[Rfam]
RNA sequence: ACACGUGAAAGGAGGUGUUCCGAAAAGUGAUUUCUUCUCGGACUCGUGAGGUGGCUGCGGGCUGACGCCCGUUGCCGCGUUCUUCGCAGUGCAGGCCGGUCAUCGGCCAAUACCAAGCAGUCACCGACCCGCAGGCUCGCCGGUAAGUCCGGCCGGCUCCUCCGUGAGGAGGGACCAGAGCCUGCGGGUUUCUGCGU
Dot-bracket structure: ..............(((.(..................................).))).((((((...(((.(((...............)))...)))...)))))).................((((((((((((.((((((.......)))))).....................)))))))))))).......
Actinobacteria sRNA Ms_IGR-5: a 197-nucleotide RNA. It scores 101 bits against the family's covariance model. The literature on the family includes a 2013 paper in RNA by Li et al., "Identification of small RNAs in Mycobacterium smegmatis using heterologous Hfq". Rfam classes the family as a small RNA.